Annotation: The family of this 425-nucleotide RNA from Defluviicoccus vanus is "Bacterial RNase P class A". It scores 290 bits against the family's covariance model. Rfam classes the family as a ribozyme. The organism belongs to Defluviicoccus, within Bacteria.
RNA sequence: CCAGACGGCCGGAUGGCCGCCUUCGUUUGGCCUUGCGCCAGCGGGGAGGAAAGUCCGGGCUCCACGGAAACACGGUGCCGGGUAACGCCCGGCGGGGGCGACCCCAGGGAAAGUGCCACAGAAAGCAAACCGCCGGCCAGGGCGCGUCAAUGCGGGCGAUCGACCGUAGCGCGACGGCCUGUCGGCAAGGGUGAAAGGGUGCGGUAAGAGCGCACCGCGCCUCCGGCAACAGAGGCGGCAUGGUAAACCCCACCGGGAGCAAGACCAAGUAGGGACGGUACGCCGGCUUCGCGCCGGCAAGCGCGUUUCCGCGCCGCCGUCCGGGUCGGUCGCGCGAGGCGCCCGGUAACGGGCGCCCCAGAUGAAUGGCCAUCACCCACCCUGAAGGGUGGGUACAGAACCCGGCUUACAGGCCGUCUGGCAUU
Dot-bracket structure: ((((((((((((((((((.(((.((((.(........).)))))))....[[[.[[[[[((((.....[[..((((((((((.....)))))(((((....)))).)((...(((((............((((((((..(.....................................)..))))))..)).......((((((.......))))))(((((((.(....).)))))).)..)))..)))))))))))))...((((......((((((......................((((..]]..))))..)))))).....))))......((((((((....))))))))..........)))))))..........................]]]]]]]].).))))))))))....
Numbered sequence: 001c002c003a004g005a006c007g008g009c010c011g012g013a014u015g016g017c018c019g020c021c022u023u024c025g026u027u028u029g030g031c032c033u034u035g036c037g038c039c040a041g042c043g044g045g046g047a048g049g050a051a052a053g054u055c056c057g058g059g060c061u062c063c064a065c066g067g068a069a070a071c072a073c074g075g076u077g078c079c080g081g082g083u084a085a086c087g088c089c090c091g092g093c094g095g096g097g098g099c100g101a102c103c104c105c106a107g108g109g110a111a112a113g114u115g116c117c118a119c120a121g122a123a124a125g126c127a128a129a130c131c132g133c134c135g136g137c138c139a140g141g142g143c144g145c146g147u148c149a150a151u152g153c154g155g156g157c158g159a160u161c162g163a164c165c166g167u168a169g170c171g172c173g174a175c176g177g178c179c180u181g182u183c184g185g186c187a188a189g190g191g192u193g194a195a196a197g198g199g200u201g202c203g204g205u206a207a208g209a210g211c212g213c214a215c216c217g218c219g220c221c222u223c224c225g226g227c228a229a230c231a232g233a234g235g236c237g238g239c240a241u242g243g244u245a246a247a248c249c250c251c252a253c254c255g256g257g258a259g260c261a262a263g264a265c266c267a268a269g270u271a272g273g274g275a276c277g278g279u280a281c282g283c284c285g286g287c288u289u290c291g292c293g294c295c296g297g298c299a300a301g302c303g304c305g306u307u308u309c310c311g312c313g314c315c316g317c318c319g320u321c322c323g324g325g326u327c328g329g330u331c332g333c334g335c336g337a338g339g340c341g342c343c344c345g346g347u348a349a350c351g352g353g354c355g356c357c358c359c360a361g362a363u364g365a366a367u368g369g370c371c372a373u374c375a376c377c378c379a380c381c382c383u384g385a386a387g388g389g390u391g392g393g394u395a396c397a398g399a400a401c402c403c404g405g406c407u408u409a410c411a412g413g414c415c416g417u418c419u420g421g422c423a424u425u
Stems, first nucleotide, its partner, number of pairs: 001421010011410001012374007020046003024043004029038001051408003055405005060259004069308002073255005078092005093107001094105004108250002113248002115244003130190002132186006140178001198216006217239001218237006225230001263331004273322006301314004338357008